[Rfam]
RNA sequence: CAAAUUUGUCCAUAAAGAGAGCAACUCCAUGACAGUGUAAAAUAUAUACUGUCGACGGAUAGCUCUCUUUAUUUUCAAAUUU
Number, nucleotide and partner (000 for none) at each position: 001c000002a000003a000004a000005u000006u000007u000008g000009u000010c000011c000012a000013u000014a070015a069016a068017g067018a066019g000020a064021g063022c062023a000024a000025c058026u057027c000028c000029a000030u000031g053032a052033c051034a000035g049036u048037g000038u000039a000040a000041a000042a000043u000044a000045u000046a000047u000048a036049c035050u000051g033052u032053c031054g000055a000056c000057g026058g025059a000060u000061a000062g022063c021064u020065c000066u018067c017068u016069u015070u014071a000072u000073u000074u000075u000076c000077a000078a000079a000080u000081u000082u000
The family of this 82-nucleotide RNA from Sitophilus oryzae is "mir-46/mir-47/mir-281 microRNA precursor family". Rfam links the family to the GO terms miRNA-mediated post-transcriptional gene silencing and RISC complex. A search with the family's covariance model found it, with a score of 49 bits. The base pairs follow the family's consensus structure, which was predicted with RNAalifold. On this family, see Lau et al., Science 2001: "An abundant class of tiny RNAs with probable regulatory roles in Caenorhabditis elegans".